mir-8/mir-141/mir-200 microRNA precursor family: a 68-nucleotide RNA sequence from Triplophysa tibetana.
The family is grouped with related families in Rfam's "mir-8 microRNA precursor clan".
Pairs were carried over by alignment from the consensus structure, which was predicted with RNAalifold.
A reference for the family is Lagos-Quintana et al. (2001), "Identification of novel genes coding for small expressed RNAs", Science.
Taxonomically the source falls in Triplophysa (Eukaryota, Actinopterygii, Actinopteri, Otophysi).
Its family is annotated with miRNA-mediated post-transcriptional gene silencing and RISC complex in the Gene Ontology.
[Rfam]
RNA sequence: GUCUCCAUCUUACAAGGCAGUUUUGGAUGUUAUUUGUUUCUCUAAUACUGCCUGGUAAUGAUGCAGAU
Numbered sequence: 001g002u003c004u005c006c007a008u009c010u011u012a013c014a015a016g017g018c019a020g021u022u023u024u025g026g027a028u029g030u031u032a033u034u035u036g037u038u039u040c041u042c043u044a045a046u047a048c049u050g051c052c053u054g055g056u057a058a059u060g061a062u063g064c065a066g067a068u
Base pairs, nucleotide, nucleotide: 002067003066004065006063007062008061009060010058011057012056013055015053016052017051018050019049020048021047023045024044025043026042027041